The family of this 73-nucleotide RNA from Crocodylus porosus is "Mammalian CPEB3 ribozyme". Lineage of the source: Eukaryota > Teleostomi > Amniota > Crocodylidae > Crocodylus. A search with the family's covariance model found it, with a score of 46 bits. The family's consensus secondary structure is taken from published work.

Nucleotides: 073
Stems, first nucleotide, its partner, number of pairs: 010041004017073007024036003045062006
Number, partner (000 for none) and nucleotide at each position: 001000a002000c003000a004000g005000g006000u007000u008000u009000g010041a011040g012039g013038c014000c015000a016000u017073g018072g019071c020070a021069g022068a023067a024036g025035u026034g027000c028000u029000u030000a031000c032000a033000g034026u035025g036024u037000a038013g039012c040011c041010u042000u043000g044000u045062c046061a047060g048059a049058u050057u051000c052000u053000g054000a055000c056000a057050a058049a059048u060047c061046u062045g063000c064000a065000a066000a067023u068022u069021c070020u071019g072018c073017u